Rfam assigns this 66-nucleotide sequence from Desmospora sp. 8437 to the family "RAGATH-18 RNA". It is annotated as a small RNA. It is one of the family's seed sequences. About the family: Actinobacteria, Firmicutes, Fusobacteria, Thermotogae (1 example).

RNA sequence: CCUGUGGAGUGUUAUACAAACCGUUGUAGGGAGUACGUGCCGAAGCGGGACACGAUGAAUCAGGAA
Dot-bracket structure: ((((....(((((.......(((.....((.........))....)))))))).......))))..

The family's consensus secondary structure is taken from published work.